[Rfam]
RNA sequence: AUUGCAUGUUCAAGGUCACAACAGAAGUGCUUACAGCAUGGCCAUGUCAUAUUCCAGCAAAUCUGCAAAUUCUGCU
Numbered sequence: 001a002u003u004g005c006a007u008g009u010u011c012a013a014g015g016u017c018a019c020a021a022c023a024g025a026a027g028u029g030c031u032u033a034c035a036g037c038a039u040g041g042c043c044a045u046g047u048c049a050u051a052u053u054c055c056a057g058c059a060a061a062u063c064u065g066c067a068a069a070u071u072c073u074g075c076u
Base pairs, nucleotide, nucleotide: 014043015042016041017040020076022074023073024072025071026070027039028038029037048065049064051062052061053060
RNA: Mammalian CPEB3 ribozyme